[Rfam]
RNA sequence: AACUGACGCCAGCCAAAUUGUUGAUGAUUCAACAACCGGGGGAUCCAAAUCUGGGGUGAAUUCGACCGUUUUCGGUCGAAGGGGCCACUCUCCGCGCCCUAACCCGUCAGCUAACUCCGGAGGCAAAAUUGUUGAGGGGA
Numbered sequence: 001a002a003c004u005g006a007c008g009c010c011a012g013c014c015a016a017a018u019u020g021u022u023g024a025u026g027a028u029u030c031a032a033c034a035a036c037c038g039g040g041g042g043a044u045c046c047a048a049a050u051c052u053g054g055g056g057u058g059a060a061u062u063c064g065a066c067c068g069u070u071u072u073c074g075g076u077c078g079a080a081g082g083g084g085c086c087a088c089u090c091u092c093c094g095c096g097c098c099c100u101a102a103c104c105c106g107u108c109a110g111c112u113a114a115c116u117c118c119g120g121a122g123g124c125a126a127a128a129u130u131g132u133u134g135a136g137g138g139g140a
Stems, first nucleotide, its partner, number of pairs: 012124003018035007036120006046053002054105003062079004082099004
About this RNA: This 140-nucleotide RNA from Sulfobacillus thermosulfidooxidans belongs to the Rfam family "c-di-AMP riboswitch aptamer (ydaO/yuaA leader)". It scores 85 bits against the family's covariance model. Rfam's curators write: This family represents a conserved RNA structure found upstream of the ydaO and yuaA genes in Bacillus subtilis and related genes in other bacteria. Taxonomically the source falls in Sulfobacillus thermosulfidooxidans (Bacteria, Clostridia, Eubacteriales, Sulfobacillus).